[Rfam]
RNA sequence: ACAUUAAUUGAAUAUCAUCAUCAUAUAAUCGCGGGGAUAUGGCCUGCAAGUUUCUACCGGUUUACCGUAAAUGAACCGACUAUGAGAAAUAAUACAGUGUUG
Numbered sequence: 001a002c003a004u005u006a007a008u009u010g011a012a013u014a015u016c017a018u019c020a021u022c023a024u025a026u027a028a029u030c031g032c033g034g035g036g037a038u039a040u041g042g043c044c045u046g047c048a049a050g051u052u053u054c055u056a057c058c059g060g061u062u063u064a065c066c067g068u069a070a071a072u073g074a075a076c077c078g079a080c081u082a083u084g085a086g087a088a089a090u091a092a093u094a095c096a097g098u099g100u101u102g
Base pairs, nucleotide, nucleotide: 018088021085022084023083024082025081029049031047032046033045034044035043058078059077060076061075062074063073064072
Dot-bracket structure: .................(..(((((...(.(((((.......))))).)........(((((((.......)))))))..)))))..)..............
The record is a 102-nucleotide RNA sequence from Virgibacillus sp. SK37, which matches "Purine riboswitch aptamer" in Rfam.
NCBI's taxonomy places the organism under Bacteria, Bacillota, Bacilli, Caryophanales, Virgibacillus.
Its family is annotated with purine nucleobase biosynthetic process in the Gene Ontology.